[Rfam]
RNA sequence: CCUUCCGAAGUUUCCCUCAGGAUAGCUGGCAUUUGUUUGUAACAAUUUUAUCCGGUAGAGCGAAUGAUUAGAGGUGUUGGGAACGCAAUGUUCUCAGCCUAUUCUCAAACUUCGAAUGGGUAAGCAAGGCGUUUUGCUUUGAUUUUACGAUGAAAUCGCCCAAUUAGAAUGCAUAAAUGCCUAGUGGGCCAAUUUUGGUAAGCAGAACUGGCGAUGUGGAAUGAACCAAAAGUCAGGUUAAGGUGCCAGACAUUGGCGCUCAUGAAAUACCAGAAAAGGUGUUGGUCGAUAUAGACAGCAGGACGGUGGCCAUGGAAGUUGGAAUCCGCCAAGGAGUGUGUAACAACUCACCUGCCGAAUCGACUAGCCCUGAAAAUGGAUAGCGUUUGAGCGCCAGGCCCAUACCUGACCGUCUCAAUUACGCACUUUUUUUCGGAAAAGGUGUAAUGAACGUUGAGACGGGUAGGAAGGUCGCGACAGUGUUGCUUUGAAGAGUUUUGAGCGUGAGCUCGCUCGGAGCCGCUGUUGGUGCAGAU
Numbered sequence: 001c002c003u004u005c006c007g008a009a010g011u012u013u014c015c016c017u018c019a020g021g022a023u024a025g026c027u028g029g030c031a032u033u034u035g036u037u038u039g040u041a042a043c044a045a046u047u048u049u050a051u052c053c054g055g056u057a058g059a060g061c062g063a064a065u066g067a068u069u070a071g072a073g074g075u076g077u078u079g080g081g082a083a084c085g086c087a088a089u090g091u092u093c094u095c096a097g098c099c100u101a102u103u104c105u106c107a108a109a110c111u112u113c114g115a116a117u118g119g120g121u122a123a124g125c126a127a128g129g130c131g132u133u134u135u136g137c138u139u140u141g142a143u144u145u146u147a148c149g150a151u152g153a154a155a156u157c158g159c160c161c162a163a164u165u166a167g168a169a170u171g172c173a174u175a176a177a178u179g180c181c182u183a184g185u186g187g188g189c190c191a192a193u194u195u196u197g198g199u200a201a202g203c204a205g206a207a208c209u210g211g212c213g214a215u216g217u218g219g220a221a222u223g224a225a226c227c228a229a230a231a232g233u234c235a236g237g238u239u240a241a242g243g244u245g246c247c248a249g250a251c252a253u254u255g256g257c258g259c260u261c262a263u264g265a266a267a268u269a270c271c272a273g274a275a276a277a278g279g280u281g282u283u284g285g286u287c288g289a290u291a292u293a294g295a296c297a298g299c300a301g302g303a304c305g306g307u308g309g310c311c312a313u314g315g316a317a318g319u320u321g322g323a324a325u326c327c328g329c330c331a332a333g334g335a336g337u338g339u340g341u342a343a344c345a346a347c348u349c350a351c352c353u354g355c356c357g358a359a360u361c362g363a364c365u366a367g368c369c370c371u372g373a374a375a376a377u378g379g380a381u382a383g384c385g386u387u388u389g390a391g392c393g394c395c396a397g398g399c400c401c402a403u404a405c406c407u408g409a410c411c412g413u414c415u416c417a418a419u420u421a422c423g424c425a426c427u428u429u430u431u432u433u434c435g436g437a438a439a440a441g442g443u444g445u446a447a448u449g450a451a452c453g454u455u456g457a458g459a460c461g462g463g464u465a466g467g468a469a470g471g472u473c474g475c476g477a478c479a480g481u482g483u484u485g486c487u488u489u490g491a492a493g494a495g496u497u498u499u500g501a502g503c504g505u506g507a508g509c510u511c512g513c514u515c516g517g518a519g520c521c522g523c524u525g526u527u528g529g530u531g532c533a534g535a536u
Base pairs, nucleotide, nucleotide: 001471002470003469004468005467006466011024013022014021015020028181029180030179031178032177033176047124048123049122050121051120052119053118058113059111060110065107066106067105070102072100073099074098077097078096079095080094081093082092084090128160129159130158131157133155134154135153188212189211190210191209193207194206195205196204197203217228218227219226232410233409234408235407236406238404242400243399244398251397253396257393258392259391277371278370279369281368282367283366284365285364286363287362288361289360290359298355299354300353301352302351304328305327306326310322311321329333334349338347339346411461412460413459414458415457416456417455418454419453473531475528476527477526478525479524480523481522482521485520486519493515494514501510502509503508
Overview
The family of this 536-nucleotide part of an RNA from Trichinella sp. T8 is "Eukaryotic large subunit ribosomal RNA". Lineage of the source: Eukaryota > Opisthokonta > Protostomia > Trichinellida > Trichinella. A search with the family's covariance model found it, with a score of 2847 bits. The family's consensus secondary structure is taken from published work.